[Rfam]
RNA sequence: UGAGAUGAGAUUAACGUUUGGAUAUAUGAUUUUACGUUGAUUUCAUCUCAUG
Numbered sequence: 001u002g003a004g005a006u007g008a009g010a011u012u013a014a015c016g017u018u019u020g021g022a023u024a025u026a027u028g029a030u031u032u033u034a035c036g037u038u039g040a041u042u043u044c045a046u047c048u049c050a051u052g
Stems, first nucleotide, its partner, number of pairs: 001050017018029003

A member of the RNA family "MIR1886 microRNA precursor family" from Solanum tuberosum, 52 nucleotides long. Lineage of the source: Eukaryota > Euphyllophyta > Mesangiospermae > Solaneae > Solanum. Its family is annotated with RISC complex and miRNA-mediated post-transcriptional gene silencing in the Gene Ontology. Rfam 15.1 lists 1,053 matches to the family in 6 species.